[Rfam]
RNA sequence: CUGACAGAAGAGAGUGAGCACACACAGGCAAUUGUAUAAGAGUAUGCUCUUGCUGGGGCGUGCUCACUUCUCUUUCUGUCAG
Numbered sequence: 001c002u003g004a005c006a007g008a009a010g011a012g013a014g015u016g017a018g019c020a021c022a023c024a025c026a027g028g029c030a031a032u033u034g035u036a037u038a039a040g041a042g043u044a045u046g047c048u049c050u051u052g053c054u055g056g057g058g059c060g061u062g063c064u065c066a067c068u069u070c071u072c073u074u075u076c077u078g079u080c081a082g
Stems, first nucleotide, its partner, number of pairs: 001082009010072003013068009023058001025056001
RNA: mir-156 microRNA precursor family